[Rfam]
RNA sequence: CUGAUCGAGACGUUGGGCCAACGCCGGUGCAGCGCGCCCGGUUCCGGGAACAGGCUUUCCCGGAAACGUUGAAGAAUCAG
Numbered sequence: 001c002u003g004a005u006c007g008a009g010a011c012g013u014u015g016g017g018c019c020a021a022c023g024c025c026g027g028u029g030c031a032g033c034g035c036g037c038c039c040g041g042u043u044c045c046g047g048g049a050a051c052a053g054g055c056u057u058u059c060c061c062g063g064a065a066a067c068g069u070u071g072a073a074g075a076a077u078c079a080g
Stems, first nucleotide, its partner, number of pairs: 001080005009070005014040004022034003042065009

L4-Archaeoglobi ribosomal protein leades: an 80-nucleotide sequence. By type it is a cis-regulatory leader.